A member of the RNA family "Clostridiales-1 RNA" from Butyrivibrio sp. XB500-5, 172 nucleotides long. It is annotated as a small RNA. NCBI's taxonomy places the organism under Bacteria, Bacillati, Clostridia, Lachnospirales, Butyrivibrio.
RNA sequence: GUGAUAUAGGGAUUCAUGCACAUGCAUUGCUGUGCUUGCACAAUGCAUUGCAUGUAUAUGAAGACCGAACAGAAAUGAGGAAAAAAGAUGUGCGAAUGAAAUGAGCAUAUCGAUUUCCGAAUUUCUGUAGGAUUGCGAGAGCGCCGAAGGCGCGAAGCAAUCCGUAUAUCAC
Numbered sequence: 001g002u003g004a005u006a007u008a009g010g011g012a013u014u015c016a017u018g019c020a021c022a023u024g025c026a027u028u029g030c031u032g033u034g035c036u037u038g039c040a041c042a043a044u045g046c047a048u049u050g051c052a053u054g055u056a057u058a059u060g061a062a063g064a065c066c067g068a069a070c071a072g073a074a075a076u077g078a079g080g081a082a083a084a085a086a087g088a089u090g091u092g093c094g095a096a097u098g099a100a101a102u103g104a105g106c107a108u109a110u111c112g113a114u115u116u117c118c119g120a121a122u123u124u125c126u127g128u129a130g131g132a133u134u135g136c137g138a139g140a141g142c143g144c145c146g147a148a149g150g151c152g153c154g155a156a157g158c159a160a161u162c163c164g165u166a167u168a169u170c171a172c
Stems, first nucleotide, its partner, number of pairs: 001172006010065001013062001016059003020055007028047003031042004069128008079118004087111007130163007141153004